[Rfam]
RNA sequence: CCGGUCCCGGUUCACGUACGCGCAGUCAGCGCGUGCGACCCGGCACC
Numbered sequence: 001c002c003g004g005u006c007c008c009g010g011u012u013c014a015c016g017u018a019c020g021c022g023c024a025g026u027c028a029g030c031g032c033g034u035g036c037g038a039c040c041c042g043g044c045a046c047c
Stems, first nucleotide, its partner, number of pairs: 003047003007043004015037009
The family of this 47-nucleotide sequence from Streptomyces sp. NRRL F-5126 is "L31-Actinobacteria ribosomal protein leader". NCBI's taxonomy places the organism under Bacteria, Actinomycetota, Actinomycetes, Kitasatosporales, Streptomyces. The family's consensus secondary structure is taken from published work. Its Rfam clan is "Ribosomal Protein L31 Leader clan". The family's RNA type in Rfam is cis-regulatory leader. On this family, see Eckert and Weinberg, BMC Microbiol 2020: "Discovery of 20 novel ribosomal leader candidates in bacteria and archaea".